[Rfam]
RNA sequence: GGUGAUUCACACCAGUGUUUCGGACAGCGGUUCGAUUCCGCUCAGCUCCAUUUUUACUAAACAUGGGGCUGCAAUGGUUUCGACGGGACAUGAGGAGGGUGACUGAAGCCUGCUCGGAUGAGCAAACACGUAACUGCGAACAACAUCGUUCGUUUCUCCCGUCAGACAGCCCCUGUAGCUGCCUGA
Numbered sequence: 001g002g003u004g005a006u007u008c009a010c011a012c013c014a015g016u017g018u019u020u021c022g023g024a025c026a027g028c029g030g031u032u033c034g035a036u037u038c039c040g041c042u043c044a045g046c047u048c049c050a051u052u053u054u055u056a057c058u059a060a061a062c063a064u065g066g067g068g069c070u071g072c073a074a075u076g077g078u079u080u081c082g083a084c085g086g087g088a089c090a091u092g093a094g095g096a097g098g099g100u101g102a103c104u105g106a107a108g109c110c111u112g113c114u115c116g117g118a119u120g121a122g123c124a125a126a127c128a129c130g131u132a133a134c135u136g137c138g139a140a141c142a143a144c145a146u147c148g149u150u151c152g153u154u155u156c157u158c159c160c161g162u163c164a165g166a167c168a169g170c171c172c173c174u175g176u177a178g179c180u181g182c183c184u185g186a
Stems, first nucleotide, its partner, number of pairs: 001104003005100001016090003020086003026042005043071007
RNA: permuted transfer-messenger RNA